The record is a 74-nucleotide sequence from Drosophila ananassae, which matches "mir-310 microRNA precursor family" in Rfam. A search with the family's covariance model found it, with a score of 64 bits. The family's consensus secondary structure was predicted with RNAalifold.

RNA sequence: GCAUUUCCAGACUGUGGUUUGGGCAGAUACUACAUUUUAGGAUCAGUAUUGCACAUUCCCCAGCCUGGAAACGC
Numbered sequence: 001g002c003a004u005u006u007c008c009a010g011a012c013u014g015u016g017g018u019u020u021g022g023g024c025a026g027a028u029a030c031u032a033c034a035u036u037u038u039a040g041g042a043u044c045a046g047u048a049u050u051g052c053a054c055a056u057u058c059c060c061c062a063g064c065c066u067g068g069a070a071a072c073g074c
Stems, first nucleotide, its partner, number of pairs: 001074002004071004010065001013062002016059002020055002023052001026050006